[Rfam]
This 121-nucleotide sequence from Rhinopithecus roxellana belongs to the Rfam family "Small nucleolar RNA SNORA20". A search with the family's covariance model found it, with a score of 91 bits. Taxonomically the source falls in Rhinopithecus (Eukaryota, Teleostomi, Catarrhini, Cercopithecoidea). By type it is an H/ACA-box small nucleolar RNA. Rfam's curators write: ACA20 is a member of the H/ACA class of snoRNA that guide the sites of modification of uridines to pseudouridines.
RNA sequence: CUUCCCAUUUAUUUGCUGCCUAUAGUCUCACAGUGAUAUGAGCAAUUAUACACGUGGGAUAAAAUAAUAUUGGUACACUGUGAAAUAAUCAUUUCAUCUCUUCUGCAUGGACUAGACAUUG
Numbered sequence: 001c002u003u004c005c006c007a008u009u010u011a012u013u014u015g016c017u018g019c020c021u022a023u024a025g026u027c028u029c030a031c032a033g034u035g036a037u038a039u040g041a042g043c044a045a046u047u048a049u050a051c052a053c054g055u056g057g058g059a060u061a062a063a064a065u066a067a068u069a070u071u072g073g074u075a076c077a078c079u080g081u082g083a084a085a086u087a088a089u090c091a092u093u094u095c096a097u098c099u100c101u102u103c104u105g106c107a108u109g110g111a112c113u114a115g116a117c118a119u120u121g
Stems, first nucleotide, its partner, number of pairs: 003059006015046001017044003021040001023038002026036002070115005076109002079107003082100002085097002088094001